[Rfam]
Alphaproteobacteria transfer-messenger RNA: a 350-nucleotide sequence from Thalassococcus profundi. The family is grouped with related families in Rfam's "tRNA clan".
RNA sequence: CCCAUUGAAACCGCCGCGAACGGGGCCUAUGUUUGCUCUGUCUGGAAACAGACUAUGGACAUAAACGCGCUCGUAAUAAGCGGAUCGGACCCGGGGGCGGUACCCGGCCACUCCACCAUAACCCGUUCAUUUGGCGGCCAUGGGGUGGAAACAGGAUCGACGAACGUCUAAAGGGGUUAGCUUUGUCCCGGCUGUCUGCCACCGUUACCGGCGAAAACAGUACAAUUGCAAAUGACAAUCGUGCUCCGGUCGCUCUGGCUGCGUAAGCAGUCCGAAGACCGAAACUUAAGCCCUUGCGCCUAGCAGCGUAAGGCGGGGUUCGCAGGCACCUGGCAACAGAAGCCUGCACU
Dot-bracket structure: .......................................(((((....)))))...(((((.....((((((........((..(((...(((((.......)))))(((((((...........................)))))))............))).)).......))))..))..)))))[[[...((.(((.]]].....))))).....................................................................................................[[[[..((((((]]]]..........))))))...
Numbered sequence: 001c002c003c004a005u006u007g008a009a010a011c012c013g014c015c016g017c018g019a020a021c022g023g024g025g026c027c028u029a030u031g032u033u034u035g036c037u038c039u040g041u042c043u044g045g046a047a048a049c050a051g052a053c054u055a056u057g058g059a060c061a062u063a064a065a066c067g068c069g070c071u072c073g074u075a076a077u078a079a080g081c082g083g084a085u086c087g088g089a090c091c092c093g094g095g096g097g098c099g100g101u102a103c104c105c106g107g108c109c110a111c112u113c114c115a116c117c118a119u120a121a122c123c124c125g126u127u128c129a130u131u132u133g134g135c136g137g138c139c140a141u142g143g144g145g146u147g148g149a150a151a152c153a154g155g156a157u158c159g160a161c162g163a164a165c166g167u168c169u170a171a172a173g174g175g176g177u178u179a180g181c182u183u184u185g186u187c188c189c190g191g192c193u194g195u196c197u198g199c200c201a202c203c204g205u206u207a208c209c210g211g212c213g214a215a216a217a218c219a220g221u222a223c224a225a226u227u228g229c230a231a232a233u234g235a236c237a238a239u240c241g242u243g244c245u246c247c248g249g250u251c252g253c254u255c256u257g258g259c260u261g262c263g264u265a266a267g268c269a270g271u272c273c274g275a276a277g278a279c280c281g282a283a284a285c286u287u288a289a290g291c292c293c294u295u296g297c298g299c300c301u302a303g304c305a306g307c308g309u310a311a312g313g314c315g316g317g318g319u320u321c322g323c324a325g326g327c328a329c330c331u332g333g334c335a336a337c338a339g340a341a342g343c344c345u346g347c348a349c350u
Stems, first nucleotide, its partner, number of pairs: 040053005057188005067181002069177004081166002085163003091107005108148007189204003195214002198212003316331004322347006
The organism belongs to Thalassococcus, within Bacteria. The match comes from Rfam's covariance-model search (296 bits). Rfam classes the family as a non-coding RNA gene.